[Rfam]
RNA sequence: GCAGAUCCAAGGCCGCGACGCUCGCCCCGCACAGGGUGCUUUCACAGCGUCCACUGUCGCGAGCGGGCCAAGGUCUGAGUGAUGCACCCUCGAUGGUCCCAGCUGGGCCCGGCUGUAAUAAGCCGCACGGCGUACCAGAAAUGCGGCCAACACUCGCGCCCCUCUGUCACUCGCGUUUCGACGAUGAGACUGCGGAGGGGGCCCGAAGACAUUCGACAACCGUUGGAUGAUGGUUGCGGGAGAGGGUCAUGCAGUGACUGGUCCUGCAAUGCGCUGUGGUGCUCGGGCGCGUGCUAUAGUCGGCGAUUCACCUGUUUGCCCUCCGUGUACGUGUAGUUCCUCGCCCGAUGUCCUCACGGACCGGUAGAGGGGCGGUAGCGGGCGUGUGGAGGCAUCACUAUGCGCACAUCGCUGUAGUGCCUCCCGCGCGAAGGGCGUUGUUAGAUUGCCGCGAACUAUCGGGCGUCGGCGCGUCCUUCUAGAAGGCAUUCUCGGGACUGUCUAGUUCGGCUGCCGCGCCCUUGAGUGCAAUUCGCGGCUCGUCACCUGCAGUAGCGCGCUCGGUGCGCUGCGGCAAACGAAACUCGAUUCAGACUACUCUGGGUCUGC
Numbered sequence: 001g002c003a004g005a006u007c008c009a010a011g012g013c014c015g016c017g018a019c020g021c022u023c024g025c026c027c028c029g030c031a032c033a034g035g036g037u038g039c040u041u042u043c044a045c046a047g048c049g050u051c052c053a054c055u056g057u058c059g060c061g062a063g064c065g066g067g068c069c070a071a072g073g074u075c076u077g078a079g080u081g082a083u084g085c086a087c088c089c090u091c092g093a094u095g096g097u098c099c100c101a102g103c104u105g106g107g108c109c110c111g112g113c114u115g116u117a118a119u120a121a122g123c124c125g126c127a128c129g130g131c132g133u134a135c136c137a138g139a140a141a142u143g144c145g146g147c148c149a150a151c152a153c154u155c156g157c158g159c160c161c162c163u164c165u166g167u168c169a170c171u172c173g174c175g176u177u178u179c180g181a182c183g184a185u186g187a188g189a190c191u192g193c194g195g196a197g198g199g200g201g202c203c204c205g206a207a208g209a210c211a212u213u214c215g216a217c218a219a220c221c222g223u224u225g226g227a228u229g230a231u232g233g234u235u236g237c238g239g240g241a242g243a244g245g246g247u248c249a250u251g252c253a254g255u256g257a258c259u260g261g262u263c264c265u266g267c268a269a270u271g272c273g274c275u276g277u278g279g280u281g282c283u284c285g286g287g288c289g290c291g292u293g294c295u296a297u298a299g300u301c302g303g304c305g306a307u308u309c310a311c312c313u314g315u316u317u318g319c320c321c322u323c324c325g326u327g328u329a330c331g332u333g334u335a336g337u338u339c340c341u342c343g344c345c346c347g348a349u350g351u352c353c354u355c356a357c358g359g360a361c362c363g364g365u366a367g368a369g370g371g372g373c374g375g376u377a378g379c380g381g382g383c384g385u386g387u388g389g390a391g392g393c394a395u396c397a398c399u400a401u402g403c404g405c406a407c408a409u410c411g412c413u414g415u416a417g418u419g420c421c422u423c424c425c426g427c428g429c430g431a432a433g434g435g436c437g438u439u440g441u442u443a444g445a446u447u448g449c450c451g452c453g454a455a456c457u458a459u460c461g462g463g464c465g466u467c468g469g470c471g472c473g474u475c476c477u478u479c480u481a482g483a484a485g486g487c488a489u490u491c492u493c494g495g496g497a498c499u500g501u502c503u504a505g506u507u508c509g510g511c512u513g514c515c516g517c518g519c520c521c522u523u524g525a526g527u528g529c530a531a532u533u534c535g536c537g538g539c540u541c542g543u544c545a546c547c548u549g550c551a552g553u554a555g556c557g558c559g560c561u562c563g564g565u566g567c568g569c570u571g572c573g574g575c576a577a578a579c580g581a582a583a584c585u586c587g588a589u590u591c592a593g594a595c596u597a598c599u600c601u602g603g604g605u606c607u608g609c
Stems, first nucleotide, its partner, number of pairs: 001609004007603003012539007020064005034052006075593005085281004095109005110125005127277007145263005540581004
The record is a 609-nucleotide sequence from Schizophyllum amplum, which matches "Nuclear RNase P" in Rfam. The organism belongs to Schizophyllum, within Eukaryota. Rfam's curators write: Ribonuclease P (RNase P) is a ubiquitous endoribonuclease, found in archaea, bacteria and eukarya as well as chloroplasts and mitochondria. Its best characterised activity is the generation of mature 5'-ends of tRNAs by cleaving the 5'-leader elements of precursor-tRNAs. Cellular RNase Ps are ribonucleoproteins. RNA from bacterial RNase Ps retains its catalytic activity in the absence of the protein subunit, i.e. it is a ribozyme. Its Rfam clan is "RNaseP clan".